Rfam assigns this 121-nucleotide sequence from Salvia splendens to the family "U5 spliceosomal RNA".
RNA sequence: GAGCUGCGCUUUGAGCACAUAGCGAACUAUUCUUGCGCCUUUUACUAAAGAGUACCGUGUGCUCGUAGCAAUUCAAACAGCAUAUGCCUCUUUUUGGAAGGUUUUUCCUCAUUUGGAAAAA
Numbered sequence: 001g002a003g004c005u006g007c008g009c010u011u012u013g014a015g016c017a018c019a020u021a022g023c024g025a026a027c028u029a030u031u032c033u034u035g036c037g038c039c040u041u042u043u044a045c046u047a048a049a050g051a052g053u054a055c056c057g058u059g060u061g062c063u064c065g066u067a068g069c070a071a072u073u074c075a076a077a078c079a080g081c082a083u084a085u086g087c088c089u090c091u092u093u094u095u096g097g098a099a100g101g102u103u104u105u106u107c108c109u110c111a112u113u114u115g116g117a118a119a120a121a
Stems, first nucleotide, its partner, number of pairs: 003081004009068002012065008028054007102121006
Record summary
A search with the family's covariance model found it, with a score of 68 bits. The literature on the family includes a 1997 paper in Nucleic Acids Res by Zwieb, "The uRNA database". The family's consensus secondary structure is taken from published work.